[Rfam]
RNA sequence: UGAAGGGACUACUGUCGCAGGAGAGAUGACGCCUAUGGUGUUACAGAUCAAAUUAGAGUUAAUUUGAGCACACACAAUAGGUUUCAUCUCUCCUCGACUGAAGCCCCUCCCAAU
Dot-bracket structure: ....(((.((.(.((((.(((.(((((((......................................................))))))).))))))).).)))))........
RNA: MIR5225 microRNA precursor family